Rfam assigns this 67-nucleotide RNA sequence from Planococcus lenghuensis to the family "Bacillaceae-1 RNA".
RNA sequence: GACUGAGGAACGCAACCUAAAAGCACGACAUCCUGUCGUAACGGUUGCAUGACCCACAUUCUGUGGG
Numbered sequence: 001g002a003c004u005g006a007g008g009a010a011c012g013c014a015a016c017c018u019a020a021a022a023g024c025a026c027g028a029c030a031u032c033c034u035g036u037c038g039u040a041a042c043g044g045u046u047g048c049a050u051g052a053c054c055c056a057c058a059u060u061c062u063g064u065g066g067g
Base pairs, nucleotide, nucleotide: 012048013047014046015045016044017043025039026038027037028036029035053067054066055065056064057063
The match comes from Rfam's covariance-model search (71 bits). NCBI's taxonomy places the organism under Bacteria, Bacillota, Bacilli, Caryophanales, Planococcus.